RNA sequence: UGGGCAUAAUGAUUAUUGUAAUAUUAUCUUAUUUUUAUAUGAUGGUUUAAUUCCCUCCUACUCAUUAUGA
Numbered sequence: 001u002g003g004g005c006a007u008a009a010u011g012a013u014u015a016u017u018g019u020a021a022u023a024u025u026a027u028c029u030u031a032u033u034u035u036u037a038u039a040u041g042a043u044g045g046u047u048u049a050a051u052u053c054c055c056u057c058c059u060a061c062u063c064a065u066u067a068u069g070a
Stems, first nucleotide, its partner, number of pairs: 006065002009062001028045001030041001
Notes: This 70-nucleotide RNA sequence from Acer yangbiense belongs to the Rfam family "Small nucleolar RNA Z105". A search with the family's covariance model found it, with a score of 45 bits. The literature on the family includes a 2003 paper in Nucleic Acids Res by Chen et al., "The high diversity of snoRNAs in plants: identification and comparative study of 120 snoRNA genes from Oryza sativa". Rfam links the family to the GO terms nucleolus and RNA processing. The base pairs follow the family's consensus structure, which was predicted with CMfinder.